RNA sequence: UUUUAGCCCCGAUAGCAACGGAAAUCCUUUUUCUUUCUUUUUCAGAAAGAAAAAGAUUGGAGUGAAUAGCGGGAAAAUGG
Numbered sequence: 001u002u003u004u005a006g007c008c009c010c011g012a013u014a015g016c017a018a019c020g021g022a023a024a025u026c027c028u029u030u031u032u033c034u035u036u037c038u039u040u041u042u043c044a045g046a047a048a049g050a051a052a053a054a055g056a057u058u059g060g061a062g063u064g065a066a067u068a069g070c071g072g073g074a075a076a077a078u079g080g
Base pairs, nucleotide, nucleotide: 009072010071011070013068014067018063019062023058024057025056026055029053030052031051032050033049034048035047036046037045038044
A member of the RNA family "Flavo-1 RNA" from Flavobacterium psychrophilum, 80 nucleotides long. Rfam classes the family as a small RNA. The sequence is in the family's curated seed alignment. Lineage of the source: Bacteria > Pseudomonadati > Flavobacteriaceae > Flavobacterium > Flavobacterium psychrophilum.